RNA sequence: GGGCGGUGACGACUACUGUGAUUUUAAGGUCUCGUUCGUCGUAAUGGGCUAUCAAGUCCUUGCCGACCAUACUGAUAUAUCACCACCCAUAUUCCGAGUCC
Numbered sequence: 001g002g003g004c005g006g007u008g009a010c011g012a013c014u015a016c017u018g019u020g021a022u023u024u025u026a027a028g029g030u031c032u033c034g035u036u037c038g039u040c041g042u043a044a045u046g047g048g049c050u051a052u053c054a055a056g057u058c059c060u061u062g063c064c065g066a067c068c069a070u071a072c073u074g075a076u077a078u079a080u081c082a083c084c085a086c087c088c089a090u091a092u093u094c095c096g097a098g099u100c101c
Stems, first nucleotide, its partner, number of pairs: 001101004051061001
The record is a 101-nucleotide RNA from Trema orientale, which matches "Small nucleolar RNA Z43" in Rfam. Its family is annotated with RNA processing and nucleolus in the Gene Ontology. For this family Rfam cites "The high diversity of snoRNAs in plants: identification and comparative study of 120 snoRNA genes from Oryza sativa" (Chen et al., Nucleic Acids Res, 2003). Rfam 15.1 lists 859 matches to the family in 240 species. The family's consensus secondary structure was predicted with PFOLD.